[Rfam]
RNA: Burkholderia sRNA Bp2_Cand287_SIPHT
RNA sequence: AAAAAGCCCGCUUUGCGUCGGCAUAAGCGGGCUGUAUGUGCGGGAAGCUUCGAGCGUAGGCGGCGCUUUCGCUGACGCCGUUCACUUUAGCUGUUUCGGGUGGCCCGAUCAGGCCGCCCCGCGUCCGCAAGCUGAACUCAAAUCGACGCAAGCUCGGAUUCUAACACCUCGUCAUUCGACCGACAGCUGCAAGUGC
Dot-bracket structure: ....((((((((.(((....)))..)))))))).....((((...((....((..(.((.(((.....)))))....)..))..))((((((.....(((.................)))((....)).))))))...........))))..............(((.........................))).
Numbered sequence: 001a002a003a004a005a006g007c008c009c010g011c012u013u014u015g016c017g018u019c020g021g022c023a024u025a026a027g028c029g030g031g032c033u034g035u036a037u038g039u040g041c042g043g044g045a046a047g048c049u050u051c052g053a054g055c056g057u058a059g060g061c062g063g064c065g066c067u068u069u070c071g072c073u074g075a076c077g078c079c080g081u082u083c084a085c086u087u088u089a090g091c092u093g094u095u096u097c098g099g100g101u102g103g104c105c106c107g108a109u110c111a112g113g114c115c116g117c118c119c120c121g122c123g124u125c126c127g128c129a130a131g132c133u134g135a136a137c138u139c140a141a142a143u144c145g146a147c148g149c150a151a152g153c154u155c156g157g158a159u160u161c162u163a164a165c166a167c168c169u170c171g172u173c174a175u176u177c178g179a180c181c182g183a184c185a186g187c188u189g190c191a192a193g194u195g196c
Stems, first nucleotide, its partner, number of pairs: 005033008014023003039150004046086002052082002056078001058073002061071003087135006098120003121128002165195003